Overview:
A member of the RNA family "mir-454 microRNA precursor family" from Salmo salar, 67 nucleotides long. A reference for the family is Chen et al. (2005), "The developmental miRNA profiles of zebrafish as determined by small RNA cloning", Genes Dev. It is one of the family's seed sequences. Rfam 15.1 lists 696 matches to the family in 601 species.
RNA sequence: ACCCUAUCAAUAUUGCCUCUGCUUUUCUGACUGAUAACGGAGUAGUGCAAUAUUGCUUAUAGGGUCU
Numbered sequence: 001a002c003c004c005u006a007u008c009a010a011u012a013u014u015g016c017c018u019c020u021g022c023u024u025u026u027c028u029g030a031c032u033g034a035u036a037a038c039g040g041a042g043u044a045g046u047g048c049a050a051u052a053u054u055g056c057u058u059a060u061a062g063g064g065u066c067u
Stems, first nucleotide, its partner, number of pairs: 001065007008055009019045004023040001